Description
Eukaryotic large subunit ribosomal RNA: a 569-nucleotide part of an RNA from Fasciola hepatica. The organism belongs to Fasciola, within Eukaryota. The match comes from Rfam's covariance-model search (1659 bits).

[Rfam]
RNA sequence: GAGGACCCUGUUGAGCUUGACUCUAGUCCGACUUUGUGAGGAGACAUGACGGGUGUAGAAUAAGUGGGAGACCGGUCCUUCGGGGCUUGUCGACAGUGAAAUACCACCACCGUCACUGUUUCUUUGCUUAUUCAGAAUAACGAGAAAUCGAUUUUGGUUCCAAGCACAUACUGUCUUCCGUGGCGUAUGCUGCGUGGGUCGGCAUCUUGGCCAUGUCAGAGUAGCCGUGGUCUCGGCCGCGGCUUUUGAGUCUGAUUGUGAUGUGCGACCCGUUUUGAAGACAAUGCCAGGCGGGGAGUUUGACUGGGGCGGUACUUCUGCCAAAUGAUAACGCAGGUGUCCCAAGGUGAGCUAAGGCAGAUCAAAAACCUGGCCUGGAGUAAAAUGGCAAAAGCCCAUUUGGUUUUGAUUUCCAGUGCGAAUACCGACGGUGAAAGUUUGGCCUAUCGAUUCUUUUGAAUCCGAUAUUCAGAGUUCGAAGCAAGGGGUGUCAGAAAAGCUAUUACAAGGAUAGUUGGCUUGUGGCGGCCAAGCUUUCAUAGCAACAUCGCUUCAUGAGCCUUCAAUGU
Numbered sequence: 001g002a003g004g005a006c007c008c009u010g011u012u013g014a015g016c017u018u019g020a021c022u023c024u025a026g027u028c029c030g031a032c033u034u035u036g037u038g039a040g041g042a043g044a045c046a047u048g049a050c051g052g053g054u055g056u057a058g059a060a061u062a063a064g065u066g067g068g069a070g071a072c073c074g075g076u077c078c079u080u081c082g083g084g085g086c087u088u089g090u091c092g093a094c095a096g097u098g099a100a101a102u103a104c105c106a107c108c109a110c111c112g113u114c115a116c117u118g119u120u121u122c123u124u125u126g127c128u129u130a131u132u133c134a135g136a137a138u139a140a141c142g143a144g145a146a147a148u149c150g151a152u153u154u155u156g157g158u159u160c161c162a163a164g165c166a167c168a169u170a171c172u173g174u175c176u177u178c179c180g181u182g183g184c185g186u187a188u189g190c191u192g193c194g195u196g197g198g199u200c201g202g203c204a205u206c207u208u209g210g211c212c213a214u215g216u217c218a219g220a221g222u223a224g225c226c227g228u229g230g231u232c233u234c235g236g237c238c239g240c241g242g243c244u245u246u247u248g249a250g251u252c253u254g255a256u257u258g259u260g261a262u263g264u265g266c267g268a269c270c271c272g273u274u275u276u277g278a279a280g281a282c283a284a285u286g287c288c289a290g291g292c293g294g295g296g297a298g299u300u301u302g303a304c305u306g307g308g309g310c311g312g313u314a315c316u317u318c319u320g321c322c323a324a325a326u327g328a329u330a331a332c333g334c335a336g337g338u339g340u341c342c343c344a345a346g347g348u349g350a351g352c353u354a355a356g357g358c359a360g361a362u363c364a365a366a367a368a369c370c371u372g373g374c375c376u377g378g379a380g381u382a383a384a385a386u387g388g389c390a391a392a393a394g395c396c397c398a399u400u401u402g403g404u405u406u407u408g409a410u411u412u413c414c415a416g417u418g419c420g421a422a423u424a425c426c427g428a429c430g431g432u433g434a435a436a437g438u439u440u441g442g443c444c445u446a447u448c449g450a451u452u453c454u455u456u457u458g459a460a461u462c463c464g465a466u467a468u469u470c471a472g473a474g475u476u477c478g479a480a481g482c483a484a485g486g487g488g489u490g491u492c493a494g495a496a497a498a499g500c501u502a503u504u505a506c507a508a509g510g511a512u513a514g515u516u517g518g519c520u521u522g523u524g525g526c527g528g529c530c531a532a533g534c535u536u537u538c539a540u541a542g543c544a545a546c547a548u549c550g551c552u553u554c555a556u557g558a559g560c561c562u563u564c565a566a567u568g569u
Base pairs, nucleotide, nucleotide: 007509009507010506012505013504014501015500016499017498018497020299021298022297023296027291028290030288032286036127037126038125039124040123041122042121043120044119045118047115048114049113050112051111052110064107065106066105067104070091071090131279132278133277134276135275141272142271144269164266165265166264167263168262302315303313304312305311317337318336319335320334321333341442342441347399348398349397351395352394353379356374358372359371360370380389381388404428405427409423410422411421412420430439431438432437453487454486455485456484457483458482468480469479470478520557522556524552525551526550527549528548533543534542
Dot-bracket structure: ......(.((.(((((((.((((...((.(.(...((((((((((.((((((...........((((..((..................))............))))..))))))..))))))))))...(((((.....((.(...................(((((.............................................................................................)))))..).))..)))))......).).))....))))..((((.....))).).(((((...........)))))...((....(((.(((..(.(((.........))).)....)((......))....)).)))....((...((((.......))))...)).(((....))).))..........((((((.........(((.......))).)))))).........)))))..)))).)..........(.(.(((((....((.......))....)))))...))............